A member of the RNA family "sul1 RNA" from Methylobrevis pamukkalensis, 57 nucleotides long. It scores 66 bits against the family's covariance model. The family has 54 seed sequences and 519 matches in Rfam 15.1. By type it is a riboswitch.
RNA sequence: CCUGGACCUGGAAGCGAUUCCGGGUGGCUCUUUCGGCCGCCGAUCCGCCGGACAACC
Number, nucleotide and partner (000 for none) at each position: 001c000002c000003u000004g000005g000006a025007c024008c023009u022010g021011g020012a000013a018014g000015c000016g000017a000018u013019u000020c011021c010022g009023g008024g007025u006026g000027g000028c000029u000030c000031u000032u052033u051034c050035g049036g048037c047038c000039g000040c000041c000042g000043a000044u000045c000046c000047g037048c036049c035050g034051g033052a032053c000054a000055a000056c000057c000